[Rfam]
The family of this 77-nucleotide RNA from Solimonas terrae is "SAH (S-adenosyl-L-homocysteine) riboswitch aptamer".
The match comes from Rfam's covariance-model search (53 bits).
Taxonomically the source falls in Solimonas (Bacteria, Pseudomonadota, Gammaproteobacteria, Nevskiaceae).
Rfam links the family to the GO terms S-adenosylhomocysteine metabolic process and regulation of gene expression.

RNA sequence: UCCGCCAAGGGGCGCUGCGAUCCGCCGAUGCGCGGACCAGGCUUGGCGGACAGCAGACGCAACCGCGCCCGAUCCCG
Numbered sequence: 001u002c003c004g005c006c007a008a009g010g011g012g013c014g015c016u017g018c019g020a021u022c023c024g025c026c027g028a029u030g031c032g033c034g035g036a037c038c039a040g041g042c043u044u045g046g047c048g049g050a051c052a053g054c055a056g057a058c059g060c061a062a063c064c065g066c067g068c069c070c071g072a073u074c075c076c077g
Stems, first nucleotide, its partner, number of pairs: 002049007021036005